Shown here is a 559-nucleotide part of an RNA from Silurus meridionalis, a member of the family "Eukaryotic small subunit ribosomal RNA". Lineage of the source: Eukaryota > Metazoa > Neopterygii > Otophysi > Silurus. The literature on the family includes a 2001 paper in Science by Yusupov et al., "Crystal structure of the ribosome at 5.5 A resolution".
RNA sequence: UGUCUCAAAGAUUAAGCCAUGCAGGUCUAAGUGCACACGGACGGUACAGUGAAACUGCGAAUGGCUCAUUAAAUCAGUUAUGGUUCCUUUGAUCGCUCCACACGUUACUCGGAUAACUGUGGUAAUUCCAGAGCUAAUACAUGCAAACGAGCGCUGACCUCUCCUCUCCCUUCACGGGGAGCGGGGUGGGGGAUGCGUGCAUUUAUCAGACCCAAAACCCAUCCGGGGGGUCUCGGGCCCCCCGGCCGCUUUGGUGACUCUAGAUAACCUCGGGCCGAUCGCGCGCCCUCCGCGGCGGCGACGUCUCAUUCGAAUGUCUGCCCUAUCAACUUUCGAUGGUACUAUAGGCGCCUACCAUGGUGACCACGGGUAACGGGGAAUCAGGGUUCGAUUCCGGAGAGGGAGCCUGAGAAACGGCUACCACAUCCAAGGAAGGCAGCAGGCGCGCAAAUUACCCAUUCCCGACACGGGGAGGUAGUGACGAAAAAUAACGAUACAGGUCUCUUUCGAGGCCCUGUAAUCGGAAUGAGCGUAUCCUAAACCCAUGGGUGAGGACCCA
Numbered sequence: 001u002g003u004c005u006c007a008a009a010g011a012u013u014a015a016g017c018c019a020u021g022c023a024g025g026u027c028u029a030a031g032u033g034c035a036c037a038c039g040g041a042c043g044g045u046a047c048a049g050u051g052a053a054a055c056u057g058c059g060a061a062u063g064g065c066u067c068a069u070u071a072a073a074u075c076a077g078u079u080a081u082g083g084u085u086c087c088u089u090u091g092a093u094c095g096c097u098c099c100a101c102a103c104g105u106u107a108c109u110c111g112g113a114u115a116a117c118u119g120u121g122g123u124a125a126u127u128c129c130a131g132a133g134c135u136a137a138u139a140c141a142u143g144c145a146a147a148c149g150a151g152c153g154c155u156g157a158c159c160u161c162u163c164c165u166c167u168c169c170c171u172u173c174a175c176g177g178g179g180a181g182c183g184g185g186g187u188g189g190g191g192g193a194u195g196c197g198u199g200c201a202u203u204u205a206u207c208a209g210a211c212c213c214a215a216a217a218c219c220c221a222u223c224c225g226g227g228g229g230g231u232c233u234c235g236g237g238c239c240c241c242c243c244g245g246c247c248g249c250u251u252u253g254g255u256g257a258c259u260c261u262a263g264a265u266a267a268c269c270u271c272g273g274g275c276c277g278a279u280c281g282c283g284c285g286c287c288c289u290c291c292g293c294g295g296c297g298g299c300g301a302c303g304u305c306u307c308a309u310u311c312g313a314a315u316g317u318c319u320g321c322c323c324u325a326u327c328a329a330c331u332u333u334c335g336a337u338g339g340u341a342c343u344a345u346a347g348g349c350g351c352c353u354a355c356c357a358u359g360g361u362g363a364c365c366a367c368g369g370g371u372a373a374c375g376g377g378g379a380a381u382c383a384g385g386g387u388u389c390g391a392u393u394c395c396g397g398a399g400a401g402g403g404a405g406c407c408u409g410a411g412a413a414a415c416g417g418c419u420a421c422c423a424c425a426u427c428c429a430a431g432g433a434a435g436g437c438a439g440c441a442g443g444c445g446c447g448c449a450a451a452u453u454a455c456c457c458a459u460u461c462c463c464g465a466c467a468c469g470g471g472g473a474g475g476u477a478g479u480g481a482c483g484a485a486a487a488a489u490a491a492c493g494a495u496a497c498a499g500g501u502c503u504c505u506u507u508c509g510a511g512g513c514c515c516u517g518u519a520a521u522c523g524g525a526a527u528g529a530g531c532g533u534a535u536c537c538u539a540a541a542c543c544c545a546u547g548g549g550u551g552a553g554g555a556c557c558c559a
Base pairs, nucleotide, nucleotide: 003486005484006483009479010446016444017443018442020441021440022439025058026057030056031055032054037050038049065399066398067397075320076319077318080315081314084313085312090308091307092306108143111140117133118132120130121129122128151198152197153196154195158191159190160189161188203267204266205265206264207263217255218254219253237246238245239244279301280300281299282298284297285296286295287294322370323369324368329361330360331359336358337357338356339355340354341353374396375395376394377393378389379388380387381386401422402421404419405418406417424435426433427432452477454476455475456474460472461471462470463469464468492523493522494521495519496518497517498516499515500514501512502511503510504509530550531549534546535545